[Rfam]
RNA: mir-9198 microRNA precursor family
Organism: Cnephaeus nilssonii
RNA sequence: GCCACUGCUUGCACCCGCUGCUGGCGCCCAGUGCCGGUUCCGAUCACUUGGCGCUGUCAGAGGGUGCAAGCGGUGGCUG
Numbered sequence: 001g002c003c004a005c006u007g008c009u010u011g012c013a014c015c016c017g018c019u020g021c022u023g024g025c026g027c028c029c030a031g032u033g034c035c036g037g038u039u040c041c042g043a044u045c046a047c048u049u050g051g052c053g054c055u056g057u058c059a060g061a062g063g064g065u066g067c068a069a070g071c072g073g074u075g076g077c078u079g
Stems, first nucleotide, its partner, number of pairs: 004074013018060003022056007